[Rfam]
RNA sequence: CUGCAUCACUUAAACCUCCUGAUGGUUUUCUUCAUGGCUGUUGGGACAAGAAGAGAUGCUACAACAAAGUAUUGUGAGAUUUCCAAAGUGGAUAAGCCAUCUGGCCAUCUGCUAUUUCACCUCUCAUACAUAUU
Numbered sequence: 001c002u003g004c005a006u007c008a009c010u011u012a013a014a015c016c017u018c019c020u021g022a023u024g025g026u027u028u029u030c031u032u033c034a035u036g037g038c039u040g041u042u043g044g045g046a047c048a049a050g051a052a053g054a055g056a057u058g059c060u061a062c063a064a065c066a067a068a069g070u071a072u073u074g075u076g077a078g079a080u081u082u083c084c085a086a087a088g089u090g091g092a093u094a095a096g097c098c099a100u101c102u103g104g105c106c107a108u109c110u111g112c113u114a115u116u117u118c119a120c121c122u123c124u125c126a127u128a129c130a131u132a133u134u
Base pairs, nucleotide, nucleotide: 003059004058005057006056010050011049017046018045019044020043021042022041024039025038026037063134064133073128074125076123077122087113088112089111090110091109092108093107096105097104
Small nucleolar RNA SNORA14: a 134-nucleotide RNA from Aquarana catesbeiana. Rfam classes the family as an H/ACA-box small nucleolar RNA. The organism belongs to Aquarana, within Eukaryota. Gene Ontology terms of the family: RNA processing and nucleolus. A search with the family's covariance model found it, with a score of 38 bits. The base pairs follow the family's consensus structure, which was predicted with RNAfold. Rfam's curators write: ACA14 is a member of the H/ACA class of snoRNA that guide the sites of modification of uridines to pseudouridines.